[Rfam]
RNA: GibS sRNA
Organism: Bacteroides graminisolvens
RNA sequence: GUGUUUUUCAUAGUAUUAGAUAAAAGAUUAGUAGUAAAAGAUUGUAUUCGCUUGGGAUAAGUAAAUACGUCGAAAACAGAAGAGUCUGUUUUUUUGAUAAAUGUGUUAUUAGCAUCGGUUCUUUCGGACCGAUGCUUUUUUCUU
Numbered sequence: 001g002u003g004u005u006u007u008u009c010a011u012a013g014u015a016u017u018a019g020a021u022a023a024a025a026g027a028u029u030a031g032u033a034g035u036a037a038a039a040g041a042u043u044g045u046a047u048u049c050g051c052u053u054g055g056g057a058u059a060a061g062u063a064a065a066u067a068c069g070u071c072g073a074a075a076a077c078a079g080a081a082g083a084g085u086c087u088g089u090u091u092u093u094u095u096g097a098u099a100a101a102u103g104u105g106u107u108a109u110u111a112g113c114a115u116c117g118g119u120u121c122u123u124u125c126g127g128a129c130c131g132a133u134g135c136u137u138u139u140u141u142c143u144u
Base pairs, nucleotide, nucleotide: 044068045067046066047065051061052060053059075090076089077088078087079086080085111136112135113134114133115132116131117130118129119128120127
Dot-bracket structure: ...........................................((((...(((.....)))...))))......((((((....))))))....................((((((((((......))))))))))........